[Rfam]
The family of this 210-nucleotide sequence from Streptomyces sp. DI166 is "Streptomyces sRNA 4677". The family's RNA type in Rfam is small RNA. From the family's description: Located in the intergenic region between anti-sigma factor SCO4677 gene and a putative regulatory protein gene SCO4676. scr4677 expression requires the SCO4677 activity and scr4677 sRNA itself seem to affect the levels of the SCO4676-associated transcripts. The pairing is the family consensus, mapped onto this sequence. The organism belongs to Streptomyces, within Bacteria. The literature on the family includes a 2014 paper in PLoS One by Hindra et al., "Complex intra-operonic dynamics mediated by a small RNA in Streptomyces coelicolor".
RNA sequence: CGCCUCGGCGCGGCGGAACUCCUUGGCGCCAACGAUCGCGUGCCAGGACACACGCUCACUCACGCGAAUGAAUUCGCCAACUCCGCUGGAUUCGGGAUCCUUUGUCUGCCCUACGCUCAGAGCUGCACAACCGCAGACAUGUGACGGCCCCCGCCGGGACUGCCAUCCCAGUGCGAGGGCCUGACCACCGAGGAAGACAAGGACUUCCCG
Numbered sequence: 001c002g003c004c005u006c007g008g009c010g011c012g013g014c015g016g017a018a019c020u021c022c023u024u025g026g027c028g029c030c031a032a033c034g035a036u037c038g039c040g041u042g043c044c045a046g047g048a049c050a051c052a053c054g055c056u057c058a059c060u061c062a063c064g065c066g067a068a069u070g071a072a073u074u075c076g077c078c079a080a081c082u083c084c085g086c087u088g089g090a091u092u093c094g095g096g097a098u099c100c101u102u103u104g105u106c107u108g109c110c111c112u113a114c115g116c117u118c119a120g121a122g123c124u125g126c127a128c129a130a131c132c133g134c135a136g137a138c139a140u141g142u143g144a145c146g147g148c149c150c151c152c153g154c155c156g157g158g159a160c161u162g163c164c165a166u167c168c169c170a171g172u173g174c175g176a177g178g179g180c181c182u183g184a185c186c187a188c189c190g191a192g193g194a195a196g197a198c199a200a201g202g203a204c205u206u207c208c209c210g
Stems, first nucleotide, its partner, number of pairs: 007189002010186001016043001018041002056071003060067002086120004146181005152175003156169004192208005